[Rfam]
Rfam assigns this 86-nucleotide sequence from Streptomyces viridochromogenes to the family "dauA ncRNA motif". Rfam's curators write: dauA ncRNA motif was reported as a strong cis regulatory motif candidate, with potential to be a cis regulatory riboswitch type, it have been identified in genomes of the genus Streptomyces. It is one of the family's seed sequences. It is annotated as a cis-regulatory element.

RNA sequence: ACGCCCCUGCCGGGAGCACGCCCAGGGGGCCGGAACUCCGGCUCACCGUGCCGCUGCCGGAUCGUCUUCCGAACCGAGGCGUCAUG
Dot-bracket structure: (((((....((((.(((..((...(((((((((....))))))).))..)).))).)))).(.(.........).).)))))....
Numbered sequence: 001a002c003g004c005c006c007c008u009g010c011c012g013g014g015a016g017c018a019c020g021c022c023c024a025g026g027g028g029g030c031c032g033g034a035a036c037u038c039c040g041g042c043u044c045a046c047c048g049u050g051c052c053g054c055u056g057c058c059g060g061a062u063c064g065u066c067u068u069c070c071g072a073a074c075c076g077a078g079g080c081g082u083c084a085u086g
Stems, first nucleotide, its partner, number of pairs: 001082005010060004015055003020051002025047002027044007062076001064074001